Description: Small nucleolar RNA snoR138: a 164-nucleotide RNA from Papaver somniferum.

[Rfam]
RNA sequence: UUUGCCUUCGAAUAACUGGAUGUGGAAAAUUCAGACCACAUUCAGUUCAGACAAGUGCAUAGAAUAAAUAUAUGAGGGGAUUGUGUUGGAAUUCUUCACCUUCCUUUUAAAUCAAUCUUAGUGGGAAGGAAUGAUUUUCCUUUCUUAUGAUUGAUUCAACAUUU
Numbered sequence: 001u002u003u004g005c006c007u008u009c010g011a012a013u014a015a016c017u018g019g020a021u022g023u024g025g026a027a028a029a030u031u032c033a034g035a036c037c038a039c040a041u042u043c044a045g046u047u048c049a050g051a052c053a054a055g056u057g058c059a060u061a062g063a064a065u066a067a068a069u070a071u072a073u074g075a076g077g078g079g080a081u082u083g084u085g086u087u088g089g090a091a092u093u094c095u096u097c098a099c100c101u102u103c104c105u106u107u108u109a110a111a112u113c114a115a116u117c118u119u120a121g122u123g124g125g126a127a128g129g130a131a132u133g134a135u136u137u138u139c140c141u142u143u144c145u146u147a148u149g150a151u152u153g154a155u156u157c158a159a160c161a162u163u164u
Stems, first nucleotide, its partner, number of pairs: 003059003007055002014047008023038003068105001072101001074099001077095006113153005

Rfam links the family to the GO terms nucleolus and RNA processing. The family has 7 seed sequences and 308 matches in Rfam 15.1. The organism belongs to Papaver, within Eukaryota.